[Rfam]
RNA sequence: GGUGGUUCUCUGGUGACACACCCCAGAAUCGGGCUCCCUCCUCUCUGGUUCUGGGUGUGUCACCAGAGAACCACA
Numbered sequence: 001g002g003u004g005g006u007u008c009u010c011u012g013g014u015g016a017c018a019c020a021c022c023c024c025a026g027a028a029u030c031g032g033g034c035u036c037c038c039u040c041c042u043c044u045c046u047g048g049u050u051c052u053g054g055g056u057g058u059g060u061c062a063c064c065a066g067a068g069a070a071c072c073a074c075a
Stems, first nucleotide, its partner, number of pairs: 002074002005071013019057005025052009
mir-9223 microRNA precursor family: a 75-nucleotide RNA from Myotis myotis. A search with the family's covariance model found it, with a score of 94 bits. Rfam links the family to the GO terms miRNA-mediated post-transcriptional gene silencing and RISC complex.